[Rfam]
Notes: This 158-nucleotide RNA sequence from Saccharomyces uvarum belongs to the Rfam family "Small nucleolar RNA snR70". Gene Ontology terms of the family: RNA processing and nucleolus. It is annotated as a C/D-box small nucleolar RNA. Taxonomically the source falls in Saccharomyces uvarum (Eukaryota, Dikarya, Saccharomycotina, Saccharomycetaceae). The base pairs follow the family's consensus structure, which was predicted with CMfinder.
RNA sequence: CAAUAUGAUGAUUUGUUGUCGACCGGGCGGACAUAUUAGUAUCUGCUAGAGAGCCGCCAUCUACUCGCAUCGUUCUGUGUACAAAUUUUUAAGAGCGGUGUUGAUGGCACUACGGUUCUUUGGUAGAGAAUUGAUGAUUGGUCACAAGACAUCUGAUU
Numbered sequence: 001c002a003a004u005a006u007g008a009u010g011a012u013u014u015g016u017u018g019u020c021g022a023c024c025g026g027g028c029g030g031a032c033a034u035a036u037u038a039g040u041a042u043c044u045g046c047u048a049g050a051g052a053g054c055c056g057c058c059a060u061c062u063a064c065u066c067g068c069a070u071c072g073u074u075c076u077g078u079g080u081a082c083a084a085a086u087u088u089u090u091a092a093g094a095g096c097g098g099u100g101u102u103g104a105u106g107g108c109a110c111u112a113c114g115g116u117u118c119u120u121u122g123g124u125a126g127a128g129a130a131u132u133g134a135u136g137a138u139u140g141g142u143c144a145c146a147a148g149a150c151a152u153c154u155g156a157u158u
Stems, first nucleotide, its partner, number of pairs: 007153004016147004021143005034136007042127003046123010056108006067101009076091001